Shown here is an 88-nucleotide RNA from Atlantibacter hermannii, a member of the family "TrxA 5' UTR thermometer".
RNA sequence: CAACCUAAGUUGGUUAAUGCUACACCAACACGCCAGACUUAAUCUUGUGGAGUAAAACAUGAGCGAUAAAAUUAUUCACCUGACCGAU
Numbered sequence: 001c002a003a004c005c006u007a008a009g010u011u012g013g014u015u016a017a018u019g020c021u022a023c024a025c026c027a028a029c030a031c032g033c034c035a036g037a038c039u040u041a042a043u044c045u046u047g048u049g050g051a052g053u054a055a056a057a058c059a060u061g062a063g064c065g066a067u068a069a070a071a072u073u074a075u076u077c078a079c080c081u082g083a084c085c086g087a088u
Stems, first nucleotide, its partner, number of pairs: 009067004014062003021054003025050003032045001072087002076083002

Rfam links the family to the GO terms regulation of translation and response to temperature stimulus. Involved in protection against oxidative stress.